The family of this 81-nucleotide RNA from Capsicum annuum is "Small nucleolar RNA Z102/R77". It is annotated as a C/D-box small nucleolar RNA. The base pairs follow the family's consensus structure, which was predicted with PFOLD. Clan: SNORD44 clan. A search with the family's covariance model found it, with a score of 47 bits. Its family is annotated with RNA processing and nucleolus in the Gene Ontology. The family has 9 seed sequences and 1,346 matches in Rfam 15.1. A reference for the family is Barneche et al. (2001), "Identification of 66 box C/D snoRNAs in Arabidopsis thaliana: extensive gene duplications generated multiple isoforms predicting new ribosomal RNA 2'-O-methylation sites", J Mol Biol.
[Rfam]
RNA sequence: GAAUGAGAUGAUGAGUGUUAUUCAAGUUUGAUAGCCUGAUAUGAUGGCAGACCAUCAUGUAUUAGCUCUAGCUGAUCAUUC
Dot-bracket structure: .((((........................(...(((.........)))....).......................)))).